Shown here is an 86-nucleotide RNA sequence from Sporofaciens musculi, a member of the family "GA-cis RNA". The family's RNA type in Rfam is small RNA. Taxonomically the source falls in Sporofaciens (Bacteria, Bacillota, Lachnospirales, Lachnospiraceae). Pairs were carried over by alignment from the consensus structure, which is taken from published work.

[Rfam]
RNA sequence: AAUAGGAGGAAGGCAAAUGCGAAGCAUUUCUUUCAUGCCUUCCGUCGAUUUGCCGCCUAACCUGGGGUGAGGGGGCGUUUCCACAG
Numbered sequence: 001a002a003u004a005g006g007a008g009g010a011a012g013g014c015a016a017a018u019g020c021g022a023a024g025c026a027u028u029u030c031u032u033u034c035a036u037g038c039c040u041u042c043c044g045u046c047g048a049u050u051u052g053c054c055g056c057c058u059a060a061c062c063u064g065g066g067g068u069g070a071g072g073g074g075g076c077g078u079u080u081c082c083a084c085a086g
Base pairs, nucleotide, nucleotide: 008043009042010041011040012039013038016028017027018026019025052076053075054074056072057071060068061067